[Rfam]
RNA: Purine riboswitch aptamer
RNA sequence: AUGAUAAACGCAUAUUGUUCUCGUAUAACUCCGCAUUCAGGAAAUGCUACAAGGGCGGAGGUUUCUACAGGAAGCCUAUUCUUCCUAACUACGAUAAUAAGGAAAUGCUUC
Dot-bracket structure: .................((.(((((...((((((....................))))))........((((((......))))))...))))).))..............